RNA sequence: AGGUCAUUUCUAAAAGGACUUGCAGGACUGUGAAACCAGGAGCCCUUAACUCUGUGGCUGAAGACCGAAGUUCUCUGUAGGAUGCUGUAGUCACUCAAUAGUGCUGUGUGCUCCUAAGGAGACAUAGCC
Numbered sequence: 001a002g003g004u005c006a007u008u009u010c011u012a013a014a015a016g017g018a019c020u021u022g023c024a025g026g027a028c029u030g031u032g033a034a035a036c037c038a039g040g041a042g043c044c045c046u047u048a049a050c051u052c053u054g055u056g057g058c059u060g061a062a063g064a065c066c067g068a069a070g071u072u073c074u075c076u077g078u079a080g081g082a083u084g085c086u087g088u089a090g091u092c093a094c095u096c097a098a099u100a101g102u103g104c105u106g107u108g109u110g111c112u113c114c115u116a117a118g119g120a121g122a123c124a125u126a127g128c129c
Stems, first nucleotide, its partner, number of pairs: 002059006014047004019042003023039001026037001072122005079115004087107004092103004

Rfam assigns this 129-nucleotide RNA sequence from Pipistrellus kuhlii to the family "Small nucleolar RNA SNORA25". Its family is annotated with RNA processing and nucleolus in the Gene Ontology. Lineage of the source: Eukaryota > Opisthokonta > Dipnotetrapodomorpha > Tetrapoda > Pipistrellus. The match comes from Rfam's covariance-model search (107 bits). ACA25 is a member of the H/ACA class of snoRNA that guide the sites of modification of uridines to pseudouridines.